The family of this 79-nucleotide sequence from Cnephaeus nilssonii is "mir-9198 microRNA precursor family". The base pairs follow the family's consensus structure, which was predicted with RNAalifold. NCBI's taxonomy places the organism under Eukaryota, Opisthokonta, Teleostomi, Theria, Cnephaeus.
RNA sequence: GCCACUGCUCGCACCCGCUGCUGGUGCCCAGCGCCGGUCCCAAUCACUCGGCACUGUCAGUGGGUGCGAGCAGUGGCUG
Numbered sequence: 001g002c003c004a005c006u007g008c009u010c011g012c013a014c015c016c017g018c019u020g021c022u023g024g025u026g027c028c029c030a031g032c033g034c035c036g037g038u039c040c041c042a043a044u045c046a047c048u049c050g051g052c053a054c055u056g057u058c059a060g061u062g063g064g065u066g067c068g069a070g071c072a073g074u075g076g077c078u079g
Stems, first nucleotide, its partner, number of pairs: 004074017022056007